[Rfam]
RNA: Eukaryotic small subunit ribosomal RNA, nucleotides 2058 to 2168
RNA sequence: GAAGGAAUCAGCGUGUGUUAACAUUCCUGGGCCGACAGGCUUCCGGGUAACCCGCUGAACCUCCUUCGUGCUUAGGGAUCGUGGCUUGCAAUUUUUCCACGUGAACGAGGA
Dot-bracket structure: ((((((........(..........((..((((....)))..)..))....).........)))))).......(....(((((............)))))....).....
Numbered sequence: 001g002a003a004g005g006a007a008u009c010a011g012c013g014u015g016u017g018u019u020a021a022c023a024u025u026c027c028u029g030g031g032c033c034g035a036c037a038g039g040c041u042u043c044c045g046g047g048u049a050a051c052c053c054g055c056u057g058a059a060c061c062u063c064c065u066u067c068g069u070g071c072u073u074a075g076g077g078a079u080c081g082u083g084g085c086u087u088g089c090a091a092u093u094u095u096u097c098c099a100c101g102u103g104a105a106c107g108a109g110g111a
Stems, first nucleotide, its partner, number of pairs: 001067006015052001026047002030043001031040003075106001080101005